Rfam assigns this 135-nucleotide RNA from Rhinopithecus bieti to the family "U8 small nucleolar RNA". Pairs were carried over by alignment from the consensus structure, which is taken from published work. By type it is a C/D-box small nucleolar RNA. It scores 72 bits against the family's covariance model. For this family Rfam cites "The U8 snoRNA gene family: identification and characterization of distinct, functional U8 genes in Xenopus" (Peculis et al., Gene, 2001).
RNA sequence: UCAUCAGGUGGGAUAAUCUUUUCCUCUUCUUCCUUUUGGAGGACAGAUUAUAACAUGAUUGUUGGAAAUGCAUGAAGCAUGAUCAACAUCUAUACAUAAUCACAACUUGAAACAUCCUGAUUGCUCCUAUCUCAU
Numbered sequence: 001u002c003a004u005c006a007g008g009u010g011g012g013a014u015a016a017u018c019u020u021u022u023c024c025u026c027u028u029c030u031u032c033c034u035u036u037u038g039g040a041g042g043a044c045a046g047a048u049u050a051u052a053a054c055a056u057g058a059u060u061g062u063u064g065g066a067a068a069u070g071c072a073u074g075a076a077g078c079a080u081g082a083u084c085a086a087c088a089u090c091u092a093u094a095c096a097u098a099a100u101c102a103c104a105a106c107u108u109g110a111a112a113c114a115u116c117c118u119g120a121u122u123g124c125u126c127c128u129a130u131c132u133c134a135u
Stems, first nucleotide, its partner, number of pairs: 024046002028043006075091001077089001080085001097123006